[Rfam]
RNA sequence: UGGUCCGCGCGCGACUGGCGUUGAGGUGGUUACCACCAGGGAGCCGCGGCAGCACGACUUCGGGACCGUUCGCCUGGGCCCCGCGU
Numbered sequence: 001u002g003g004u005c006c007g008c009g010c011g012c013g014a015c016u017g018g019c020g021u022u023g024a025g026g027u028g029g030u031u032a033c034c035a036c037c038a039g040g041g042a043g044c045c046g047c048g049g050c051a052g053c054a055c056g057a058c059u060u061c062g063g064g065a066c067c068g069u070u071c072g073c074c075u076g077g078g079c080c081c082c083g084c085g086u
Base pairs, nucleotide, nucleotide: 005049006048007047008046009045011044012043015040016039017074018073019072020071026036027035028034029033063081064080066078067077

The record is an 86-nucleotide RNA sequence from Aeromicrobium flavum, which matches "ZMP/ZTP riboswitch aptamer (pfl RNA motif)" in Rfam. Pairs were carried over by alignment from the consensus structure, which is taken from published work. A search with the family's covariance model found it, with a score of 42 bits.